[Rfam]
RNA sequence: CUCUUAUCCCGAGCUGGUGGAGGGACAGGCCCUAUGAAACCCGGCAACCUGCAAAGACGACCUUGUCUGCGCGAAGGUGCCAACCUGGAGCAAGGUUGAAUUCCUUGGACGAUAAGAG
Numbered sequence: 001c002u003c004u005u006a007u008c009c010c011g012a013g014c015u016g017g018u019g020g021a022g023g024g025a026c027a028g029g030c031c032c033u034a035u036g037a038a039a040c041c042c043g044g045c046a047a048c049c050u051g052c053a054a055a056g057a058c059g060a061c062c063u064u065g066u067c068u069g070c071g072c073g074a075a076g077g078u079g080c081c082a083a084c085c086u087g088g089a090g091c092a093a094g095g096u097u098g099a100a101u102u103c104c105u106u107g108g109a110c111g112a113u114a115a116g117a118g
Stems, first nucleotide, its partner, number of pairs: 001118008013042001016041003022032003026090001029086001043081004048077002050073003091107005
Overview
Shown here is a 118-nucleotide RNA from Filibacter tadaridae, a member of the family "SAM riboswitch aptamer (S box leader)". The organism belongs to Filibacter, within Bacteria. The match comes from Rfam's covariance-model search (74 bits).